[Rfam]
RNA sequence: AAUUCCACUGCUGCCCCGAGAGAAUGCCCAUCUUCAGCUCGGACUUGGAAUUCCUAGAUAAUUGCUGUUUGUGAAAAGCUGGCAAUCAUUUCUCUAAGUUCCAUCUCUUAGUUUUCCUUAAGGACAUCCAGAAACG
Numbered sequence: 001a002a003u004u005c006c007a008c009u010g011c012u013g014c015c016c017c018g019a020g021a022g023a024a025u026g027c028c029c030a031u032c033u034u035c036a037g038c039u040c041g042g043a044c045u046u047g048g049a050a051u052u053c054c055u056a057g058a059u060a061a062u063u064g065c066u067g068u069u070u071g072u073g074a075a076a077a078g079c080u081g082g083c084a085a086u087c088a089u090u091u092c093u094c095u096a097a098g099u100u101c102c103a104u105c106u107c108u109u110a111g112u113u114u115u116c117c118u119u120a121a122g123g124a125c126a127u128c129c130a131g132a133a134a135c136g
Stems, first nucleotide, its partner, number of pairs: 006082001010079003016073001017071004021066002024063001026062001041054003089134005099124003
This 136-nucleotide RNA from Hipposideros armiger belongs to the Rfam family "ODC internal ribosome entry site (IRES)".
Lineage of the source: Eukaryota > Eumetazoa > Chiroptera > Hipposideridae > Hipposideros.
The family's consensus secondary structure was predicted with mfold.
On this family, see Pyronnet et al., Cell Mol Life Sci 2005: "Alternative splicing facilitates internal ribosome entry on the ornithine decarboxylase mRNA".